The record is a 96-nucleotide RNA from Raphanus sativus, which matches "Small nucleolar RNA R44/J54/Z268 family" in Rfam. Rfam links the family to the GO terms nucleolus and RNA processing. Pairs were carried over by alignment from the consensus structure, which was predicted with PFOLD. By type it is a C/D-box small nucleolar RNA. A search with the family's covariance model found it, with a score of 93 bits.
RNA sequence: AGUGCAAGUGACGAUGAAAAGACAGGGACAUCAGAAUCUCCUUUGAUGGGAGAUGAGUGAUGAUUAAUGUCUAAAUGGGAAUCUCUCUGAUGCAUA
Dot-bracket structure: .(((((....................................................................................))))).